[Rfam]
RNA sequence: ACAUUUUUCUAGCAGCAAGUAAAUAUUGAAUGUUACCUGCUGCUAGAAAAAUGU
Dot-bracket structure: (((.(((..((((((((..(.(((((...))))))..)))))))..)))).)))

Overview: mir-16 microRNA precursor family: a 54-nucleotide RNA from Anguilla anguilla. A search with the family's covariance model found it, with a score of 38 bits. Pairs were carried over by alignment from the consensus structure, which was predicted with PFOLD. The family is grouped with related families in Rfam's "mir-15 clan".